The record is a 192-nucleotide sequence from Anopheles gambiae, which matches "drz-agam-2-2 ribozyme" in Rfam. The family's consensus secondary structure is taken from published work. The family has 5 seed sequences and 486 matches in Rfam 15.1.
[Rfam]
RNA sequence: UGCAACUUGCAUUGCACUGUGAUGGGAUCCGAAGCCCUCCGAGGGAUAAUACAGGCUCCCCCAUCCAACUCCUAUUCCAACACGUCCUCGUCGUGCAGAGUGGUAACAUGUGCCACCACAUAUCCAAGCUUGGGUACACGAGCUUGACCCAACCCCUUGGGUGGAUGGUGGCAUAUGGUGAGCCAGGAGGGG
Numbered sequence: 001u002g003c004a005a006c007u008u009g010c011a012u013u014g015c016a017c018u019g020u021g022a023u024g025g026g027a028u029c030c031g032a033a034g035c036c037c038u039c040c041g042a043g044g045g046a047u048a049a050u051a052c053a054g055g056c057u058c059c060c061c062c063a064u065c066c067a068a069c070u071c072c073u074a075u076u077c078c079a080a081c082a083c084g085u086c087c088u089c090g091u092c093g094u095g096c097a098g099a100g101u102g103g104u105a106a107c108a109u110g111u112g113c114c115a116c117c118a119c120a121u122a123u124c125c126a127a128g129c130u131u132g133g134g135u136a137c138a139c140g141a142g143c144u145u146g147a148c149c150c151a152a153c154c155c156c157u158u159g160g161g162u163g164g165a166u167g168g169u170g171g172c173a174u175a176u177g178g179u180g181a182g183c184c185a186g187g188a189g190g191g192g
Stems, first nucleotide, its partner, number of pairs: 011101002013097003021065006029055002070192004075188002078186001082094003086103002107177008116168002122166004130152006154161002